[Rfam]
RNA sequence: UUCCAAUCUCUCCAAACCAUCCUUGUUUAGUAUCUCUCAUAUACUAUCCACCAUCAUGUCUCCCUGCGCCUGCAACUGCUGCUCCGGCAACUGCAACUCUUGCUCUUGCAACUCUUGCAAGGUAUAUACACCCACCCAUUCA
Numbered sequence: 001u002u003c004c005a006a007u008c009u010c011u012c013c014a015a016a017c018c019a020u021c022c023u024u025g026u027u028u029a030g031u032a033u034c035u036c037u038c039a040u041a042u043a044c045u046a047u048c049c050a051c052c053a054u055c056a057u058g059u060c061u062c063c064c065u066g067c068g069c070c071u072g073c074a075a076c077u078g079c080u081g082c083u084c085c086g087g088c089a090a091c092u093g094c095a096a097c098u099c100u101u102g103c104u105c106u107u108g109c110a111a112c113u114c115u116u117g118c119a120a121g122g123u124a125u126a127u128a129c130a131c132c133c134a135c136c137c138a139u140u141c142a
Stems, first nucleotide, its partner, number of pairs: 065089003072082003093118003102109002
Shown here is a 142-nucleotide RNA sequence from Aspergillus sclerotioniger, a member of the family "A. fumigatus sRNA Afu_254".
NCBI's taxonomy places the organism under Eukaryota, Opisthokonta, Dikarya, Eurotiomycetes, Aspergillus sclerotioniger.
A search with the family's covariance model found it, with a score of 77 bits.
The family has 6 seed sequences and 185 matches in Rfam 15.1.